The record is a 62-nucleotide RNA sequence from Natribacillus halophilus, which matches "Bacillus-plasmid RNA" in Rfam. Rfam 15.1 lists 155 matches to the family in 128 species. Lineage of the source: Bacteria > Bacillati > Bacillota > Bacilli > Natribacillus.
RNA sequence: CCUGUCAACGGUAAGCGGACCGCUUGUAGCGGGAGCAUUAAGGAGUUGACAGGAAUGAGGCU
Numbered sequence: 001c002c003u004g005u006c007a008a009c010g011g012u013a014a015g016c017g018g019a020c021c022g023c024u025u026g027u028a029g030c031g032g033g034a035g036c037a038u039u040a041a042g043g044a045g046u047u048g049a050c051a052g053g054a055a056u057g058a059g060g061c062u
Stems, first nucleotide, its partner, number of pairs: 001053009
Record summary:
A search with the family's covariance model found it, with a score of 48 bits. By type it is a small RNA.